Annotation:
The family of this 140-nucleotide sequence from Tricholaema leucomelas is "Small Cajal body specific RNA 11". A reference for the family is Darzacq et al. (2002), "Cajal body-specific small nuclear RNAs: a novel class of 2'-O-methylation and pseudouridylation guide RNAs", EMBO J. NCBI's taxonomy places the organism under Eukaryota, Archosauria, Saurischia, Coraciimorphae, Tricholaema lacrymosa. Its family is annotated with nucleolus, Cajal body and RNA processing in the Gene Ontology.
RNA sequence: GUGUCCUGACCUCAUCUUUGCUUUUCCCCUCACCGGAGCUGUGGUGGUGGGGUUUUGGGGUGGACACAGAUCAACUUACCUCUCAUGUUAGGAGGGCUACCAAAGAUAUGUGGAAGCCCUUAAAGGCAGGGGAGGACAGC
Numbered sequence: 001g002u003g004u005c006c007u008g009a010c011c012u013c014a015u016c017u018u019u020g021c022u023u024u025u026c027c028c029c030u031c032a033c034c035g036g037a038g039c040u041g042u043g044g045u046g047g048u049g050g051g052g053u054u055u056u057g058g059g060g061u062g063g064a065c066a067c068a069g070a071u072c073a074a075c076u077u078a079c080c081u082c083u084c085a086u087g088u089u090a091g092g093a094g095g096g097c098u099a100c101c102a103a104a105g106a107u108a109u110g111u112g113g114a115a116g117c118c119c120u121u122a123a124a125g126g127c128a129g130g131g132g133a134g135g136a137c138a139g140c
Stems, first nucleotide, its partner, number of pairs: 002066005010059002025052002028049001030047004079135006088125002092121007100113003104109001